[Rfam]
Bacillaceae-1 RNA: a 66-nucleotide RNA sequence from Gracilibacillus kekensis. By type it is a small RNA.
RNA sequence: UUUAAUGGAUGGCAUACUAAAUUCGCAACGUCCUGUUGCAACGUAUGCACUUGUACAUCCUGUACU
Numbered sequence: 001u002u003u004a005a006u007g008g009a010u011g012g013c014a015u016a017c018u019a020a021a022u023u024c025g026c027a028a029c030g031u032c033c034u035g036u037u038g039c040a041a042c043g044u045a046u047g048c049a050c051u052u053g054u055a056c057a058u059c060c061u062g063u064a065c066u
Stems, first nucleotide, its partner, number of pairs: 012048006025039005053065004
Taxonomically the source falls in Gracilibacillus (Bacteria, Bacilli, Caryophanales, Bacillaceae). It scores 64 bits against the family's covariance model.